[Rfam]
RNA sequence: ACAAAUUGUAGAGGUGCAGACAUCAUAAGUAUAUUUUCUGAGUGGAGAACGUUGAAGAAAAUUGAAAGGGGUAUUUGCCGAAGUCAGUUAAGCGUCAUCUUAAUUGGCUGGGGUCGUUAUCGAAAGGUGCGACACUGUCAUAAGGUAACCAUUUUUACCUUAUGGAGCGCUACUGUUUAG
Numbered sequence: 001a002c003a004a005a006u007u008g009u010a011g012a013g014g015u016g017c018a019g020a021c022a023u024c025a026u027a028a029g030u031a032u033a034u035u036u037u038c039u040g041a042g043u044g045g046a047g048a049a050c051g052u053u054g055a056a057g058a059a060a061a062u063u064g065a066a067a068g069g070g071g072u073a074u075u076u077g078c079c080g081a082a083g084u085c086a087g088u089u090a091a092g093c094g095u096c097a098u099c100u101u102a103a104u105u106g107g108c109u110g111g112g113g114u115c116g117u118u119a120u121c122g123a124a125a126g127g128u129g130c131g132a133c134a135c136u137g138u139c140a141u142a143a144g145g146u147a148a149c150c151a152u153u154u155u156u157a158c159c160u161u162a163u164g165g166a167g168c169g170c171u172a173c174u175g176u177u178u179a180g
Stems, first nucleotide, its partner, number of pairs: 006175001008173004016078005022072003033062007082109011110136002113133005120126001138165010
The record is a 180-nucleotide RNA sequence from Otariodibacter oris, which matches "Lysine riboswitch aptamer" in Rfam. About the family: Riboswitches are metabolite binding domains within certain messenger RNAs that serve as precision sensors for their corresponding targets.